[Rfam]
RNA sequence: CUAGGCAUUCUCUACCUAACACUACCUACACAUGCUAGUCAGUAAUGACUAGUGUGAAGCUGUAGGGACAAAGUAGCCUGUCUUAAAUGACAAUGCAAAUACAAAAAGUUCUAAAUGUAUUUUCAGGAGCUAGUGUAA
Numbered sequence: 001c002u003a004g005g006c007a008u009u010c011u012c013u014a015c016c017u018a019a020c021a022c023u024a025c026c027u028a029c030a031c032a033u034g035c036u037a038g039u040c041a042g043u044a045a046u047g048a049c050u051a052g053u054g055u056g057a058a059g060c061u062g063u064a065g066g067g068a069c070a071a072a073g074u075a076g077c078c079u080g081u082c083u084u085a086a087a088u089g090a091c092a093a094u095g096c097a098a099a100u101a102c103a104a105a106a107a108g109u110u111c112u113a114a115a116u117g118u119a120u121u122u123u124c125a126g127g128a129g130c131u132a133g134u135g136u137a138a
Base pairs, nucleotide, nucleotide: 002018003017004016005015007013026065027064028063029062030061031056032055033054034053035052036051037050038049039048040047041046079092080091081090082089094137095136096135097134

The record is a 138-nucleotide RNA from Sclerotinia nivalis, which matches "Group II catalytic intron D1-D4-7" in Rfam. Rfam links the family to the GO term Group II intron splicing. Pairs were carried over by alignment from the consensus structure. For this family Rfam cites "Group II introns: structure and catalytic versatility of large natural ribozymes" (Lehmann and Schmidt, Crit Rev Biochem Mol Biol, 2003). Rfam 15.1 lists 1,296 matches to the family in 705 species. A search with the family's covariance model found it, with a score of 58 bits. About the family: Group II introns are found in rRNA, tRNA and mRNA of organelles in fungi, plants and protists, and also in mRNA in bacteria.